A member of the RNA family "M23 RNA", 51 nucleotides long.
RNA sequence: CGGCAGGCCGCCGGCCGUAACGGGCGGCCAUCGGAUCGCUCCGGUGAAAGG
Numbered sequence: 001c002g003g004c005a006g007g008c009c010g011c012c013g014g015c016c017g018u019a020a021c022g023g024g025c026g027g028c029c030a031u032c033g034g035a036u037c038g039c040u041c042c043g044g045u046g047a048a049a050g051g
Stems, first nucleotide, its partner, number of pairs: 007028006030045006